[Rfam]
RNA sequence: UCGUUAGUAGCGGGAGAGCACACAGGCCUCAUGAGCACUGCUGUCGCCGAAGGAGCAACCGCCCCGGAAACUCUCAGGCACAAGGAACCGCUACUUCUUU
Numbered sequence: 001u002c003g004u005u006a007g008u009a010g011c012g013g014g015a016g017a018g019c020a021c022a023c024a025g026g027c028c029u030c031a032u033g034a035g036c037a038c039u040g041c042u043g044u045c046g047c048c049g050a051a052g053g054a055g056c057a058a059c060c061g062c063c064c065c066g067g068a069a070a071c072u073c074u075c076a077g078g079c080a081c082a083a084g085g086a087a088c089c090g091c092u093a094c095u096u097c098u099u100u
Stems, first nucleotide, its partner, number of pairs: 006095008020044003046079003049075002053073003059067002